[Rfam]
RNA sequence: AGAUGUCCUUCACCCACCCCUAAAGAUCCCAGGUGGGUAAGGGAAUAUUCAGAGGGAUC
Numbered sequence: 001a002g003a004u005g006u007c008c009u010u011c012a013c014c015c016a017c018c019c020c021u022a023a024a025g026a027u028c029c030c031a032g033g034u035g036g037g038u039a040a041g042g043g044a045a046u047a048u049u050c051a052g053a054g055g056g057a058u059c
Base pairs, nucleotide, nucleotide: 006044007043008042009041010040013037014036015035016034017033018032025059026058027057028056029055030054
This 59-nucleotide sequence from Molossus molossus belongs to the Rfam family "Antizyme RNA frameshifting stimulation element". About the family: This family represents a structural element which is found in antizyme mRNA and is known to promote frameshifting. Antizyme genes have have two partially overlapping open reading frames, the second, which encodes the functional protein requires +1 translational frameshifting. This frameshift is stimulated by a pseudoknot present 3' of the frameshift site in the antizyme mRNA. The frameshifting efficiency is dependent on the level of polyamines in the cell, when the polyamine concentration is high frameshifting is more likely to occur which leads to an increase in the quantity of functional antizyme produced. The functional antizyme acts to reduce ornithine decarboxylase (ODC) activity which leads to a drop in polyamines present in the cell. Rfam links the family to the GO term translational frameshifting. The match comes from Rfam's covariance-model search (66 bits).